The record is an 88-nucleotide RNA sequence from Handroanthus impetiginosus, which matches "Small nucleolar RNA snoR8a" in Rfam. Rfam 15.1 lists 956 matches to the family in 245 species.

RNA sequence: GGGAUUUCAAUGAUUAGAAGUAUAUUUCCUCCUUCUGAAUGCUAAUGGCAUGACAGGCUCUUUUAACACCCAUAGAAUCUGAGAAAUC
Numbered sequence: 001g002g003g004a005u006u007u008c009a010a011u012g013a014u015u016a017g018a019a020g021u022a023u024a025u026u027u028c029c030u031c032c033u034u035c036u037g038a039a040u041g042c043u044a045a046u047g048g049c050a051u052g053a054c055a056g057g058c059u060c061u062u063u064u065a066a067c068a069c070c071c072a073u074a075g076a077a078u079c080u081g082a083g084a085a086a087u088c
Stems, first nucleotide, its partner, number of pairs: 003088002006085002
The source organism's lineage runs through Eukaryota, Euphyllophyta, lamiids, Crescentiina and Handroanthus. Its family is annotated with nucleolus and RNA processing in the Gene Ontology.